[Rfam]
RNA: Fluoride riboswitch aptamer (crcB RNA motif)
RNA sequence: UCGCCCGAUGGGGAUGGAGUCCCCCGACAACCGCCUCGCCCGGUCGUCCGGUUCCGAGGCUGACGACUCCUGCCGCGCC
Number, nucleotide and partner (000 for none) at each position: 001u000002c000003g000004c000005c000006c000007g000008a000009u000010g025011g024012g023013g022014a000015u000016g070017g069018a068019g067020u066021c065022c013023c012024c011025c010026g000027a000028c000029a000030a000031c000032c000033g060034c059035c058036u057037c056038g055039c000040c000041c000042g000043g000044u000045c000046g000047u000048c000049c000050g000051g000052u000053u000054c000055c038056g037057a036058g035059g034060c033061u000062g000063a000064c000065g021066a020067c019068u018069c017070c016071u000072g000073c000074c000075g000076c000077g000078c000079c000